[Rfam]
RNA sequence: GCUCGUCUGGGCGAGGGUAAAGAGUGAUUAGGCCCAGAGCGUCUUGGCCGGGAGCUGCCGGCUGGGGGUUCAG
Number, nucleotide and partner (000 for none) at each position: 001g000002c015003u014004c013005g000006u038007c037008u036009g035010g034011g033012c000013g004014a003015g002016g000017g000018u000019a000020a000021a000022g000023a000024g000025u072026g071027a070028u000029u000030a000031g000032g040033c011034c010035c009036a008037g007038a006039g000040c032041g000042u067043c066044u065045u064046g063047g062048c061049c060050g059051g058052g000053a000054g000055c000056u000057g000058c051059c050060g049061g048062c047063u046064g045065g044066g043067g042068g000069u000070u027071c026072a025073g000
Annotation: The record is a 73-nucleotide RNA from Flintibacter faecis, which matches "Pistol ribozyme" in Rfam. The literature on the family includes a 2020 paper in Angew Chem Int Ed Engl by Teplova et al., "Crucial Roles of Two Hydrated Mg(2+) Ions in Reaction Catalysis of the Pistol Ribozyme". NCBI's taxonomy places the organism under Bacteria, Bacillota, Clostridia, Eubacteriales, Flintibacter. A search with the family's covariance model found it, with a score of 55 bits. Gene Ontology term of the family: catalytic activity.